[Rfam]
Bacillus sRNA ncr1175: a 122-nucleotide sequence from Bacillus atrophaeus. Rfam classes the family as a small RNA. Pairs were carried over by alignment from the consensus structure, which is taken from published work. It is one of the family's seed sequences.

RNA sequence: AGGCCGGCGCGAUACUCCCUAUAACUAUCCUUUUAAUCAGUAGAUUUCAAAUAUCGCGCCGGUUUUUUAUACUUUUAUACGAUAAAAAAUCCCGCCAUCUUCAUCAGAUCGGCGGGUUUUAU
Dot-bracket structure: ((((((((((((((....((((.................))))........))))))))))))))......................((.(((((((((.......))).)))))).))...